[Rfam]
The record is a 133-nucleotide RNA sequence from Eubacterium uniforme, which matches "Ribosomal protein L10 leader" in Rfam. A search with the family's covariance model found it, with a score of 76 bits. About the family: This family is a putative r-protein leader autoregulatory structure found in B. subtilis and other low-GC Gram-positive bacteria. Rfam links the family to the GO term regulation of gene expression. Rfam classes the family as a cis-regulatory leader.
RNA sequence: GGACUUAAAGUCCAAUUGCCGAAGACAGUAGGUGCGAAAGCGUAAUUAUUUAUUAAGCCUACCGAGGAGUUAGAUAAAUAAGAUUAUUUACACCUCUCUAUGUCUAGGCAUGGAGAGGUUUUUGUUGAUUAGA
Numbered sequence: 001g002g003a004c005u006u007a008a009a010g011u012c013c014a015a016u017u018g019c020c021g022a023a024g025a026c027a028g029u030a031g032g033u034g035c036g037a038a039a040g041c042g043u044a045a046u047u048a049u050u051u052a053u054u055a056a057g058c059c060u061a062c063c064g065a066g067g068a069g070u071u072a073g074a075u076a077a078a079u080a081a082g083a084u085u086a087u088u089u090a091c092a093c094c095u096c097u098c099u100a101u102g103u104c105u106a107g108g109c110a111u112g113g114a115g116a117g118g119u120u121u122u123u124g125u126u127g128a129u130u131a132g133a
Base pairs, nucleotide, nucleotide: 028062029061030060031059032058033057034041035040093118094117095116096115097114098113099112100111101110102109